RNA: Streptococcus sRNA SSRC41
Organism: Streptococcus equi
RNA sequence: AAGCUCGAACAGAGCUUUUUUAAUAUCCUAACAAAUCUGAUUUCUUGUUUAUUCAAUAAAAAUAAGCUAUAAUAGAGCGUAGCACUUAAAGUUAGAAAGAAGGUGUAAGU
Numbered sequence: 001a002a003g004c005u006c007g008a009a010c011a012g013a014g015c016u017u018u019u020u021u022a023a024u025a026u027c028c029u030a031a032c033a034a035a036u037c038u039g040a041u042u043u044c045u046u047g048u049u050u051a052u053u054c055a056a057u058a059a060a061a062a063u064a065a066g067c068u069a070u071a072a073u074a075g076a077g078c079g080u081a082g083c084a085c086u087u088a089a090a091g092u093u094a095g096a097a098a099g100a101a102g103g104u105g106u107a108a109g110u
Stems, first nucleotide, its partner, number of pairs: 003078004008073001013068005019062003030049004082106006